[Rfam]
RNA sequence: GAGAUAUGAUGAGUGCUCUAGUAUAGCUUUACAAAUGCGAUUUGGGUCUCUGCCCCAAGCCUGGUUAUGACAAUUGGGCACUCUAAUUUGACCAAUUUGAUCUC
Numbered sequence: 001g002a003g004a005u006a007u008g009a010u011g012a013g014u015g016c017u018c019u020a021g022u023a024u025a026g027c028u029u030u031a032c033a034a035a036u037g038c039g040a041u042u043u044g045g046g047u048c049u050c051u052g053c054c055c056c057a058a059g060c061c062u063g064g065u066u067a068u069g070a071c072a073a074u075u076g077g078g079c080a081c082u083c084u085a086a087u088u089u090g091a092c093c094a095a096u097u098u099g100a101u102c103u104c
Stems, first nucleotide, its partner, number of pairs: 001104004014094002017091002023041002026038002044083004049078002062076004

About this RNA:
The record is a 104-nucleotide RNA sequence from Lathyrus oleraceus, which matches "Small nucleolar RNA Z279/snoR105/snoR108" in Rfam. This family includes the plant snoRNAs known as Z279, snoR105 and snoR108. Rfam 15.1 lists 906 matches to the family in 223 species. The family is grouped with related families in Rfam's "snoU13 clan". The literature on the family includes a 2002 paper in Curr Biol by Marker et al., "Experimental RNomics: identification of 140 candidates for small non-messenger RNAs in the plant Arabidopsis thaliana". Its family is annotated with RNA processing and nucleolus in the Gene Ontology. A search with the family's covariance model found it, with a score of 66 bits.